RNA sequence: GCUUUUCCCCCACAGACCUGCUUGCGUUUUAUACAGAGAAGCUUGCAGGCUCUUGUGGGAGGAAUAGGC
Numbered sequence: 001g002c003u004u005u006u007c008c009c010c011c012a013c014a015g016a017c018c019u020g021c022u023u024g025c026g027u028u029u030u031a032u033a034c035a036g037a038g039a040a041g042c043u044u045g046c047a048g049g050c051u052c053u054u055g056u057g058g059g060a061g062g063a064a065u066a067g068g069c
Stems, first nucleotide, its partner, number of pairs: 001069004009059003013055001014053003019047002024042002026034002
The record is a 69-nucleotide RNA sequence from Leptobrachium leishanense, which matches "MAT2A 3'UTR stem loop A" in Rfam. It is annotated as a cis-regulatory element. The source organism's lineage runs through Eukaryota, Gnathostomata, Tetrapoda, Megophryidae and Leptobrachium. The match comes from Rfam's covariance-model search (42 bits). The family has 20 seed sequences and 595 matches in Rfam 15.1.